[Rfam]
RNA sequence: AACUCAUCCAGAGGGGGAGGGAACGGCCCGUUGAUCCCCGGCAACCGAUGGUAAUCACAGGUGCCAAUUCCGUCAGGGAGUGAGGCCGCCACUCGCCUGGAAGAUGAGAG
Numbered sequence: 001a002a003c004u005c006a007u008c009c010a011g012a013g014g015g016g017g018a019g020g021g022a023a024c025g026g027c028c029c030g031u032u033g034a035u036c037c038c039c040g041g042c043a044a045c046c047g048a049u050g051g052u053a054a055u056c057a058c059a060g061g062u063g064c065c066a067a068u069u070c071c072g073u074c075a076g077g078g079a080g081u082g083a084g085g086c087c088g089c090c091a092c093u094c095g096c097c098u099g100g101a102a103g104a105u106g107a108g109a110g
Stems, first nucleotide, its partner, number of pairs: 003108006013039004019029003023073004040065004045061002050058001069102001074099004
RNA: SAM riboswitch aptamer (S box leader)
Organism: Anaerolineae bacterium